[Rfam]
RNA sequence: UAGCGAUGCUCUGGAAAGUGCCGCGGCGGACAUGCCAAGGCCACCGAAGGGGUAUUCCGGCUGCCUGAAAAGGCCACCGGCGAAGCUCUCAGGUUUCCGCGACAGAGGGGGUUUU
Numbered sequence: 001u002a003g004c005g006a007u008g009c010u011c012u013g014g015a016a017a018g019u020g021c022c023g024c025g026g027c028g029g030a031c032a033u034g035c036c037a038a039g040g041c042c043a044c045c046g047a048a049g050g051g052g053u054a055u056u057c058c059g060g061c062u063g064c065c066u067g068a069a070a071a072g073g074c075c076a077c078c079g080g081c082g083a084a085g086c087u088c089u090c091a092g093g094u095u096u097c098c099g100c101g102a103c104a105g106a107g108g109g110g111g112u113u114u115u
Stems, first nucleotide, its partner, number of pairs: 007109001009107005020041003043094003046090002050088003057080004
This 115-nucleotide RNA from Croceicoccus marinus belongs to the Rfam family "Glycine riboswitch aptamer". Gene Ontology term of the family: glycine biosynthetic process. Rfam describes the family as follows. This family represents the bacterial glycine riboswitch. Glycine riboswitches usually consist of two metabolite-binding aptamers domains with similar structures in tandem. The aptamers cooperatively bind glycine to regulate the expression of downstream genes. In Bacillus subtilis, this riboswitch is found upstream of the gcvT operon which controls glycine degradation. The source organism's lineage runs through Bacteria, Pseudomonadota, Alphaproteobacteria, Erythrobacteraceae and Croceicoccus.